Notes:
The family of this 67-nucleotide RNA from Glaciimonas sp. PCH181 is "Betaproteobacteria toxic small RNA". Rfam 15.1 lists 951 matches to the family in 508 species. About the family: Overexpression in amino aid rich medium attenuates growth, suggesting role in repressing amino acid intake and metabolism. It scores 52 bits against the family's covariance model. NCBI's taxonomy places the organism under Bacteria, Pseudomonadati, Burkholderiales, Oxalobacteraceae, Glaciimonas. A reference for the family is Kimelman et al. (2012), "A vast collection of microbial genes that are toxic to bacteria", Genome Res.

Nucleotides: 067
Base pairs, nucleotide, nucleotide: 008029009028010027011026012025014023015022033060034059035058036057037056038055039054
Number, partner (000 for none) and nucleotide at each position: 001000u002000g003000u004000c005000u006000c007000c008029u009028c010027c011026a012025a013000c014023u015022c016000u017000c018000c019000u020000a021000a022015g023014g024000u025012u026011u027010g028009g029008a030000u031000u032000u033060a034059g035058u036057c037056c038055g039054c040000u041000u042000a043000g044000c045000a046000c047000c048000g049000c050000u051000a052000a053000u054039g055038c056037g057036g058035g059034c060033u061000u062000u063000u064000u065000u066000u067000u